[Rfam]
Shown here is an 85-nucleotide sequence from Homo sapiens, a member of the family "mir-1231 microRNA precursor family". The sequence is in the family's curated seed alignment. The organism belongs to Homo, within Eukaryota. The family's consensus secondary structure was predicted with RNAalifold.

RNA sequence: UCUGGGCGGACAGCUGCAGGAAAGGGAAGACCAAGGCUUGCUGUCUGUCCAGUCUGCCACCCUACCCUGUCUGUUCUUGCCACAG
Numbered sequence: 001u002c003u004g005g006g007c008g009g010a011c012a013g014c015u016g017c018a019g020g021a022a023a024g025g026g027a028a029g030a031c032c033a034a035g036g037c038u039u040g041c042u043g044u045c046u047g048u049c050c051a052g053u054c055u056g057c058c059a060c061c062c063u064a065c066c067c068u069g070u071c072u073g074u075u076c077u078u079g080c081c082a083c084a085g
Stems, first nucleotide, its partner, number of pairs: 003082003008077003013074002016070005023063003028055004035050002039047002